[Rfam]
RNA: FMN riboswitch aptamer (RFN element)
Nucleotides: 145
Base pairs, nucleotide, nucleotide: 005141006140007139008138009137010136017029018028019027031125032124033114034113035065036064037063038062060112061111068090069089094110095109096108097107098106116128117127118126
Number, partner (000 for none) and nucleotide at each position: 001000a002000a003000a004000c005141g006140u007139u008138c009137u010136c011000a012000g013000g014000g015000c016000g017029g018028g019027g020000u021000g022000c023000a024000a025000c026000u027019c028018c029017c030000c031125a032124c033114c034113g035065g036064c037063g038062g039000u040000g041000a042000u043000g044000c045000g046000g047000a048000u049000c050000c051000u052000g053000u054000c055000c056000g057000c058000g059000a060112g061111c062038c063037c064036g065035c066000g067000a068090g069089c070000g071000c072000g073000g074000c075000a076000u077000c078000u079000g080000c081000c082000g083000g084000g085000g086000u087000c088000a089069g090068c091000a092000g093000a094110u095109c096108c097107g098106g099000u100000g101000c102000g103000a104000u105000c106098c107097c108096g109095g110094a111061g112060c113034c114033g115000a116128c117127g118126g119000u120000c121000a122000c123000a124032g125031u126118c127117c128116g129000g130000a131000u132000g133000a134000a135000a136010g137009a138008g139007a140006a141005c142000a143000g144000c145000g